[Rfam]
Rfam assigns this 133-nucleotide RNA sequence from Podilymbus podiceps to the family "Small nucleolar RNA SNORA77". ACA63 (SNORA77) is a member of the H/ACA class of snoRNAs that guide the sites of modification of uridines to pseudouridines. This snoRNA was identified by computational screening and its expression in mouse experimentally verified by Northern blot and primer extension analysis. ACA63 is proposed to guide the pseudouridylation of 18S rRNA U814. Lineage of the source: Eukaryota > Metazoa > Eumetazoa > Amniota > Podilymbus. Rfam 15.1 lists 843 matches to the family in 607 species. The literature on the family includes a 2006 paper in RNA by Schattner et al., "A computational screen for mammalian pseudouridylation guide H/ACA RNAs".
RNA sequence: GCAGACUCACUCUGUACUGAACUGCAGUCUCCAGUUCAGGUGCUUUUUCUGUCUGCGAGAGUAAUAGUUCACAGGAGUGAUAAUGGCCUCCUUUCUUGUAGAAGGCUGUUACAAUUGCUGUUGGGACACUGUU
Number, nucleotide and partner (000 for none) at each position: 001g056002c055003a054004g053005a052006c051007u000008c000009a000010c000011u000012c000013u000014g043015u042016a041017c040018u038019g037020a036021a000022c034023u033024g032025c000026a000027g000028u000029c000030u000031c000032c024033a023034g022035u000036u020037c019038a018039g000040g017041u016042g015043c014044u000045u000046u000047u000048u000049c000050u000051g006052u005053c004054u003055g002056c001057g000058a000059g000060a000061g000062u000063a000064a000065u000066a000067g000068u124069u123070c000071a121072c120073a119074g118075g000076a115077g000078u113079g112080a000081u000082a000083a000084u000085g107086g106087c105088c104089u103090c000091c000092u000093u000094u000095c000096u000097u000098g000099u000100a000101g000102a000103a089104g088105g087106c086107u085108g000109u000110u000111a000112c079113a078114a000115u076116u000117g000118c074119u073120g072121u071122u000123g069124g068125g000126a000127c000128a000129c000130u000131g000132u000133u000